Plant small nucleolar RNA R71: a 107-nucleotide sequence from Arachis hypogaea.
RNA sequence: AGCAUGUCAGUAGGACACUUUUUGGUCAGUCCUUUGUAUCUCUCCCAAGCUUCAUAGAGGGAUUCACCAUCUUUUUGUUUGAAGGUUUGAACAUCCACUCUAAUCUU
Numbered sequence: 001a002g003c004a005u006g007u008c009a010g011u012a013g014g015a016c017a018c019u020u021u022u023u024g025g026u027c028a029g030u031c032c033u034u035u036g037u038a039u040c041u042c043u044c045c046c047a048a049g050c051u052u053c054a055u056a057g058a059g060g061g062a063u064u065c066a067c068c069a070u071c072u073u074u075u076u077g078u079u080u081g082a083a084g085g086u087u088u089g090a091a092c093a094u095c096c097a098c099u100c101u102a103a104u105c106u107u
Base pairs, nucleotide, nucleotide: 001107004104005102006101057074058073060071

Overview:
Rfam classes the family as a C/D-box small nucleolar RNA. The base pairs follow the family's consensus structure, which was predicted with PFOLD. Gene Ontology terms of the family: RNA processing and nucleolus. The match comes from Rfam's covariance-model search (47 bits). The family has 25 seed sequences and 278,378 matches in Rfam 15.1.